[Rfam]
RNA sequence: GCUGUCUCAAGGGGGUGCCCGAGUGUUUGCACGCCGGGCUGAGAGGCAUUCGCCAACUCCUGGAACCUGAUCCGGAUCGUGCCGGCGGAGGGAAUUGGGAUGGAAUCGAUU
Numbered sequence: 001g002c003u004g005u006c007u008c009a010a011g012g013g014g015g016u017g018c019c020c021g022a023g024u025g026u027u028u029g030c031a032c033g034c035c036g037g038g039c040u041g042a043g044a045g046g047c048a049u050u051c052g053c054c055a056a057c058u059c060c061u062g063g064a065a066c067c068u069g070a071u072c073c074g075g076a077u078c079g080u081g082c083c084g085g086c087g088g089a090g091g092g093a094a095u096u097g098g099g100a101u102g103g104a105a106u107c108g109a110u111u
Stems, first nucleotide, its partner, number of pairs: 006099005011060004017039005046053002066091003072085004